[Rfam]
RNA sequence: CUGUGAGAGGAAUGAUGUACUAUUACAGGGCUCUCAAAAUGCUUACCUUUCUUGAUAAUGCUUCCGAGAUUGACAUCAGCG
Numbered sequence: 001c002u003g004u005g006a007g008a009g010g011a012a013u014g015a016u017g018u019a020c021u022a023u024u025a026c027a028g029g030g031c032u033c034u035c036a037a038a039a040u041g042c043u044u045a046c047c048u049u050u051c052u053u054g055a056u057a058a059u060g061c062u063u064c065c066g067a068g069a070u071u072g073a074c075a076u077c078a079g080c081g
Stems, first nucleotide, its partner, number of pairs: 002081002004078003
Notes: The record is an 81-nucleotide RNA sequence from Musa balbisiana, which matches "Small nucleolar RNA J33" in Rfam. The family's RNA type in Rfam is C/D-box small nucleolar RNA. The literature on the family includes a 2003 paper in Nucleic Acids Res by Chen et al., "The high diversity of snoRNAs in plants: identification and comparative study of 120 snoRNA genes from Oryza sativa". Gene Ontology terms of the family: nucleolus and RNA processing. The organism belongs to Musa, within Eukaryota.